[Rfam]
RNA sequence: UGUUAAAAUUUUUAUCUGUUUUUACUGUUAAAAAUUUAUCCUUGUAUGUCAGUAAGAGGUGCAUAUAGCACACCACGUGUAAUUGUUUGGUUAUUCCGUCAGCCAUGCCUGUUUUUAACAGUAGAAAUGGAUAAAUUUUUUAACA
Numbered sequence: 001u002g003u004u005a006a007a008a009u010u011u012u013u014a015u016c017u018g019u020u021u022u023u024a025c026u027g028u029u030a031a032a033a034a035u036u037u038a039u040c041c042u043u044g045u046a047u048g049u050c051a052g053u054a055a056g057a058g059g060u061g062c063a064u065a066u067a068g069c070a071c072a073c074c075a076c077g078u079g080u081a082a083u084u085g086u087u088u089g090g091u092u093a094u095u096c097c098g099u100c101a102g103c104c105a106u107g108c109c110u111g112u113u114u115u116u117a118a119c120a121g122u123a124g125a126a127a128u129g130g131a132u133a134a135a136u137u138u139u140u141u142a143a144c145a
Stems, first nucleotide, its partner, number of pairs: 002144007011135006018128009028118006
A member of the RNA family "MIR7502 microRNA precursor family" from Gossypium laxum, 145 nucleotides long.
Pairs were carried over by alignment from the consensus structure, which was predicted with RNAalifold.
The source organism's lineage runs through Eukaryota, Viridiplantae, Malvaceae, Malvoideae and Gossypium.